[Rfam]
RNA sequence: GAUCGUUAUCGCAAUAAUAAUUCAAUUUAAUACGAAAAAAAUCGUUAAUUCGAAUAAUUGAUUUGUGUAAUUGUUUAACAAAAUAAUGUCGUGACGUUAUUAUUCGUUAAAUUAUAAUUAAACGUUUUUAAAUUAAAAUUUAUGUCAAAACGCGACGAUUUUUUUCGCACAUCAUAAUCGAAUACGAAUAAAUUUCGAUUUUAAAUUUCAAUAAAUUGACAUCGAAAAUUCGACGAAAACGUCGAAUUUUUAAUUAACGAAUUGCAAUUUCAUUUUGCGCGAAAUUAAGUUUUUUACAUACGAUUUGAUUGUAAAAUCGAAUUAUGUAAAUAAUCAAAUAGUUUUAUUAUUACAAAUUAUUGAAUAUAUUCGUUAUUUUUUAAAUUUUU
Numbered sequence: 001g002a003u004c005g006u007u008a009u010c011g012c013a014a015u016a017a018u019a020a021u022u023c024a025a026u027u028u029a030a031u032a033c034g035a036a037a038a039a040a041a042u043c044g045u046u047a048a049u050u051c052g053a054a055u056a057a058u059u060g061a062u063u064u065g066u067g068u069a070a071u072u073g074u075u076u077a078a079c080a081a082a083a084u085a086a087u088g089u090c091g092u093g094a095c096g097u098u099a100u101u102a103u104u105c106g107u108u109a110a111a112u113u114a115u116a117a118u119u120a121a122a123c124g125u126u127u128u129u130a131a132a133u134u135a136a137a138a139u140u141u142a143u144g145u146c147a148a149a150a151c152g153c154g155a156c157g158a159u160u161u162u163u164u165u166c167g168c169a170c171a172u173c174a175u176a177a178u179c180g181a182a183u184a185c186g187a188a189u190a191a192a193u194u195u196c197g198a199u200u201u202u203a204a205a206u207u208u209c210a211a212u213a214a215a216u217u218g219a220c221a222u223c224g225a226a227a228a229u230u231c232g233a234c235g236a237a238a239a240c241g242u243c244g245a246a247u248u249u250u251u252a253a254u255u256a257a258c259g260a261a262u263u264g265c266a267a268u269u270u271c272a273u274u275u276u277g278c279g280c281g282a283a284a285u286u287a288a289g290u291u292u293u294u295u296a297c298a299u300a301c302g303a304u305u306u307g308a309u310u311g312u313a314a315a316a317u318c319g320a321a322u323u324a325u326g327u328a329a330a331u332a333a334u335c336a337a338a339u340a341g342u343u344u345u346a347u348u349a350u351u352a353c354a355a356a357u358u359a360u361u362g363a364a365u366a367u368a369u370u371c372g373u374u375a376u377u378u379u380u381u382a383a384a385u386u387u388u389u
Stems, first nucleotide, its partner, number of pairs: 005159003009155004015147001017145002020050001022048001024046003051106005059099003066093003070089001071086006108142003115135005164283005170277001287387005292308002296304001313379005319371003323366002330360004339352004
This 389-nucleotide part of an RNA from Heterodermia speciosa belongs to the Rfam family "Eukaryotic large subunit ribosomal RNA". The base pairs follow the family's consensus structure, which is taken from published work. Taxonomically the source falls in Heterodermia (Eukaryota, Fungi, Dikarya, leotiomyceta). Rfam 15.1 lists 107,465 matches to the family in 2,616 species. A search with the family's covariance model found it, with a score of 288 bits.